A member of the RNA family "SAM (S-adenosyl methionine) riboswitch aptamer" from Rothia sp. ZJ932, 141 nucleotides long.
A search with the family's covariance model found it, with a score of 82 bits.

[Rfam]
RNA sequence: GAUCAUGAGACCCAGCGUUAAGCUCUGGCUAGUUGGGCGGCAACCCUCUCCCGUAGCGGGGUGCCCCAGAUGAAGAUCAGGCACACGGUGCGUCCCAACUACCCAAUAAAACGGGCGGACGCGCGUGGGCAAGUACGGCGC
Numbered sequence: 001g002a003u004c005a006u007g008a009g010a011c012c013c014a015g016c017g018u019u020a021a022g023c024u025c026u027g028g029c030u031a032g033u034u035g036g037g038c039g040g041c042a043a044c045c046c047u048c049u050c051c052c053g054u055a056g057c058g059g060g061g062u063g064c065c066c067c068a069g070a071u072g073a074a075g076a077u078c079a080g081g082c083a084c085a086c087g088g089u090g091c092g093u094c095c096c097a098a099c100u101a102c103c104c105a106a107u108a109a110a111a112c113g114g115g116c117g118g119a120c121g122c123g124c125g126u127g128g129g130c131a132a133g134u135a136c137g138g139c140g141c
Stems, first nucleotide, its partner, number of pairs: 001078004009038001011037006021030002039065003044061003048056002081130002084127004
The family's consensus secondary structure is taken from published work.
Rfam 15.1 lists 2,360 matches to the family in 1,305 species.